[Rfam]
RNA sequence: UUUUUAAGAACCAUUUGAAUCAAGUCGUGAUUCAAAUGGUUCUUAAAA
Numbered sequence: 001u002u003u004u005u006a007a008g009a010a011c012c013a014u015u016u017g018a019a020u021c022a023a024g025u026c027g028u029g030a031u032u033c034a035a036a037u038g039g040u041u042c043u044u045a046a047a048a
Base pairs, nucleotide, nucleotide: 004046005045006044007043008042009041010040011039012038013037014036015035016034017033018032019031020030021029022028